[Rfam]
RNA sequence: GAGGCGGACCGGGCCCUCUGGCUGUUGCCCAAGCAAUAGUGAUGUCGGAUCGCAUCA
Numbered sequence: 001g002a003g004g005c006g007g008a009c010c011g012g013g014c015c016c017u018c019u020g021g022c023u024g025u026u027g028c029c030c031a032a033g034c035a036a037u038a039g040u041g042a043u044g045u046c047g048g049a050u051c052g053c054a055u056c057a
Stems, first nucleotide, its partner, number of pairs: 006051002009048004021040008
RNA: terC RNA